The record is a 59-nucleotide sequence from Albula goreensis, which matches "U7 small nuclear RNA" in Rfam. The base pairs follow the family's consensus structure, which was predicted with PFOLD. It scores 51 bits against the family's covariance model. Rfam's curators write: Animal histone pre-mRNAs are spliced by a different mechanism than nuclear pre-mRNAs and self-splicing introns. This processing involves the U7 snRNP, which contains only one RNA species: U7.
RNA sequence: GAAUAUUUUGCUUUUUUAGUAUUUGUCCAGCAGGUUUCUCCGGAAAAGGAGAAGCCCCU
Numbered sequence: 001g002a003a004u005a006u007u008u009u010g011c012u013u014u015u016u017u018a019g020u021a022u023u024u025g026u027c028c029a030g031c032a033g034g035u036u037u038c039u040c041c042g043g044a045a046a047a048g049g050a051g052a053a054g055c056c057c058c059u
Stems, first nucleotide, its partner, number of pairs: 033056009